RNA sequence: AUCCUUUUGCAGUGGCAGUAUCGUAGCCUAUGAGAUUUAUCCGAGGCGUGAUUAUUGCUAGUUGAAAACUUUACCCAAUUCCUGCCUUGAUGACUUGAAAUACAGUCAGCAGUGGCAAUUUUUGUUAGUCUCUAAAGAGA
Numbered sequence: 001a002u003c004c005u006u007u008u009g010c011a012g013u014g015g016c017a018g019u020a021u022c023g024u025a026g027c028c029u030a031u032g033a034g035a036u037u038u039a040u041c042c043g044a045g046g047c048g049u050g051a052u053u054a055u056u057g058c059u060a061g062u063u064g065a066a067a068a069c070u071u072u073a074c075c076c077a078a079u080u081c082c083u084g085c086c087u088u089g090a091u092g093a094c095u096u097g098a099a100a101u102a103c104a105g106u107c108a109g110c111a112g113u114g115g116c117a118a119u120u121u122u123u124g125u126u127a128g129u130c131u132c133u134a135a136a137g138a139g140a
Stems, first nucleotide, its partner, number of pairs: 020052005026047003034042001084116003087112003091108005129140004
Rfam assigns this 140-nucleotide RNA from Larimichthys crocea to the family "U4 spliceosomal RNA".
Pairs were carried over by alignment from the consensus structure, which is taken from published work.
The family's RNA type in Rfam is spliceosomal small nuclear RNA.
It scores 115 bits against the family's covariance model.
Gene Ontology terms of the family: U4 snRNP and spliceosomal tri-snRNP complex assembly.